[Rfam]
RNA sequence: AGGAGGUGCCUUUCAGGCAUCCUCUCCUAAAACUUUCAGGGCUGGUCUUGCGACCGGCCCUUUUUUUUGGUCGCG
Numbered sequence: 001a002g003g004a005g006g007u008g009c010c011u012u013u014c015a016g017g018c019a020u021c022c023u024c025u026c027c028u029a030a031a032a033c034u035u036u037c038a039g040g041g042c043u044g045g046u047c048u049u050g051c052g053a054c055c056g057g058c059c060c061u062u063u064u065u066u067u068u069g070g071u072c073g074c075g
Stems, first nucleotide, its partner, number of pairs: 008018004039060009

Description:
The family of this 75-nucleotide sequence from Sphingobium sp. YG1 is "Makes More Granules Regulator RNA (mmgR)". It scores 58 bits against the family's covariance model. A reference for the family is Schluter et al. (2010), "A genome-wide survey of sRNAs in the symbiotic nitrogen-fixing alpha-proteobacterium Sinorhizobium meliloti", BMC Genomics. The organism belongs to Sphingobium, within Bacteria. Its Rfam clan is "suhB sRNA clan".